[Rfam]
RNA sequence: UCGUUCCCCGGCCGUCCCGGGACUCGACUGACGCCGGUACCUGAUACGGCCGGCGCAG
Numbered sequence: 001u002c003g004u005u006c007c008c009c010g011g012c013c014g015u016c017c018c019g020g021g022a023c024u025c026g027a028c029u030g031a032c033g034c035c036g037g038u039a040c041c042u043g044a045u046a047c048g049g050c051c052g053g054c055g056c057a058g
Stems, first nucleotide, its partner, number of pairs: 001027003005022004028058003032055007
A member of the RNA family "L17-Actino-Proteobacteria ribosomal protein leader" from Actinomadura sp. WAC 06369, 58 nucleotides long. It scores 52 bits against the family's covariance model. It is annotated as a cis-regulatory leader. The literature on the family includes a 2020 paper in BMC Microbiol by Eckert and Weinberg, "Discovery of 20 novel ribosomal leader candidates in bacteria and archaea". NCBI's taxonomy places the organism under Bacteria, Bacillati, Streptosporangiales, Thermomonosporaceae, Actinomadura.